A member of the RNA family "chrB-b RNA", 50 nucleotides long. It is annotated as a cis-regulatory element. The sequence is in the family's curated seed alignment.
RNA sequence: UGGGGAAUUAGCAGCCUCCCCGUUUCAAGACAUUCACGUCCAAGGCCUGC
Numbered sequence: 001u002g003g004g005g006a007a008u009u010a011g012c013a014g015c016c017u018c019c020c021c022g023u024u025u026c027a028a029g030a031c032a033u034u035c036a037c038g039u040c041c042a043a044g045g046c047c048u049g050c
Base pairs, nucleotide, nucleotide: 001022002021003020004019005018006017011050012049013048014047029040030039031038